[Rfam]
Rfam assigns this 167-nucleotide sequence from Bombyx mori to the family "R2 RNA element". Rfam 15.1 lists 3,698 matches to the family in 74 species. Lineage of the source: Eukaryota > Allotriocarida > Insecta > Aparaglossata > Bombyx. On this family, see Luan et al., Cell 1993: "Reverse transcription of R2Bm RNA is primed by a nick at the chromosomal target site: a mechanism for non-LTR retrotransposition". From the family's description: This family represents the 3' UTR region of the R2 retrotransposable element. This family is known to interact with the R2-encoded reverse transcriptase in a reaction known as target primed reverse transcription (TPRT).
RNA sequence: AAAUGGCUAAUGACUAACACAUGGAUAAAGGUUGUCCCACAAUAAAAAGGGACAGAUAACCAGGAGGGAGGCUUUAGUCCGUAGGUCACUGAGACACUUUCUCAGUGGAGUCGGGCAUGCCCAUUGGCCCGGGCCCUUGGGUAUCCUUGAGGAAUUCCUCGCGCCCA
Numbered sequence: 001a002a003a004u005g006g007c008u009a010a011u012g013a014c015u016a017a018c019a020c021a022u023g024g025a026u027a028a029a030g031g032u033u034g035u036c037c038c039a040c041a042a043u044a045a046a047a048a049g050g051g052a053c054a055g056a057u058a059a060c061c062a063g064g065a066g067g068g069a070g071g072c073u074u075u076a077g078u079c080c081g082u083a084g085g086u087c088a089c090u091g092a093g094a095c096a097c098u099u100u101c102u103c104a105g106u107g108g109a110g111u112c113g114g115g116c117a118u119g120c121c122c123a124u125u126g127g128c129c130c131g132g133g134c135c136c137u138u139g140g141g142u143a144u145c146c147u148u149g150a151g152g153a154a155u156u157c158c159u160c161g162c163g164c165c166c167a
Base pairs, nucleotide, nucleotide: 033054034053035052036051037050038049063166064165067162069159070158071157077116078115079114080113081112086108087107088106089105090104091103092102093101094100118143119142120141121140122139123138